The record is a 100-nucleotide RNA from Cynoglossus semilaevis, which matches "Vault RNA" in Rfam. This family of RNAs are found as part of the enigmatic vault ribonucleoprotein complex. The complex consists of a major vault protein (MVP), two minor vault proteins (VPARP and TEP1), and several small untranslated RNA molecules. It has been suggested that the vault complex is involved in drug resistance. By type it is a non-coding RNA gene. Pairs were carried over by alignment from the consensus structure, which is taken from published work.
[Rfam]
RNA sequence: GCGCUGGUUUAGCUCAGUGGUUACUUCACUGACUUUUCAAUUGCGAAACCCAGUACCUUCCCUCCGCGGGAUCGAACCACGGGCGCUGCCCAGCGUUUUG
Numbered sequence: 001g002c003g004c005u006g007g008u009u010u011a012g013c014u015c016a017g018u019g020g021u022u023a024c025u026u027c028a029c030u031g032a033c034u035u036u037u038c039a040a041u042u043g044c045g046a047a048a049c050c051c052a053g054u055a056c057c058u059u060c061c062c063u064c065c066g067c068g069g070g071a072u073c074g075a076a077c078c079a080c081g082g083g084c085g086c087u088g089c090c091c092a093g094c095g096u097u098u099u100g
Base pairs, nucleotide, nucleotide: 002095003094004093005092006091007090012084013083014082015081017080018079019078020077025076026075027074